RNA sequence: UUGUAGUGAUGAUCCCUGUGGAGGUUUCGCUUUGUUUACUGAUACCUGAUGUUCAAAUGUUCCACUUGGCUGGCUGAACAA
Numbered sequence: 001u002u003g004u005a006g007u008g009a010u011g012a013u014c015c016c017u018g019u020g021g022a023g024g025u026u027u028c029g030c031u032u033u034g035u036u037u038a039c040u041g042a043u044a045c046c047u048g049a050u051g052u053u054c055a056a057a058u059g060u061u062c063c064a065c066u067u068g069g070c071u072g073g074c075u076g077a078a079c080a081a
Stems, first nucleotide, its partner, number of pairs: 001081004